[Rfam]
RNA sequence: CCGGGUCUUUUUGCGGUCUGGGCUUUCUGGGUCUGUCGCAGCCCGUGGCAGAAAGCCCUUACCCCAAAGAGCAUCCG
Number, nucleotide and partner (000 for none) at each position: 001c000002c000003g000004g000005g000006u000007c071008u070009u069010u068011u067012u066013g065014c000015g063016g062017u061018c000019u000020g058021g057022g056023c055024u000025u053026u000027c051028u050029g000030g000031g000032u000033c000034u000035g000036u000037c000038g000039c000040a000041g000042c000043c000044c000045g000046u000047g000048g000049c000050a028051g027052a000053a025054a000055g023056c022057c021058c020059u000060u000061a017062c016063c015064c000065c013066a012067a011068a010069g009070a008071g007072c000073a000074u000075c000076c000077g000
mir-129 microRNA precursor family: a 77-nucleotide RNA sequence from Alligator mississippiensis. For this family Rfam cites "Identification of tissue-specific microRNAs from mouse" (Lagos-Quintana et al., Curr Biol, 2002). The match comes from Rfam's covariance-model search (67 bits). Taxonomically the source falls in Alligator (Eukaryota, Gnathostomata, Sarcopterygii, Amniota).